The record is a 143-nucleotide sequence from Trichoplax adhaerens, which matches "U8 small nucleolar RNA" in Rfam. The family's RNA type in Rfam is C/D-box small nucleolar RNA. A reference for the family is Peculis (1997), "The sequence of the 5' end of the U8 small nucleolar RNA is critical for 5.8S and 28S rRNA maturation", Mol Cell Biol.

[Rfam]
RNA sequence: CUAUCAGUAGGGUGAUCCUUACCUGUUGUCUCUUAAAUGAGACACAGAUUAAGGAUACACAUGAUGAUCCGAGAGUAUGACUAUUCCAUGAAUUAAAACUCUCGCAUAGCAGAGCCGGCGACGACUUUGUUAUGGUUGCUGAC
Numbered sequence: 001c002u003a004u005c006a007g008u009a010g011g012g013u014g015a016u017c018c019u020u021a022c023c024u025g026u027u028g029u030c031u032c033u034u035a036a037a038u039g040a041g042a043c044a045c046a047g048a049u050u051a052a053g054g055a056u057a058c059a060c061a062u063g064a065u066g067a068u069c070c071g072a073g074a075g076u077a078u079g080a081c082u083a084u085u086c087c088a089u090g091a092a093u094u095a096a097a098a099c100u101c102u103c104g105c106a107u108a109g110c111a112g113a114g115c116c117g118g119c120g121a122c123g124a125c126u127u128u129g130u131u132a133u134g135g136u137u138g139c140u141g142a143c
Base pairs, nucleotide, nucleotide: 023047024046025045027044028043029042030041031040032039079101080100082098084096105134106133107132108131109130110129111128112127113126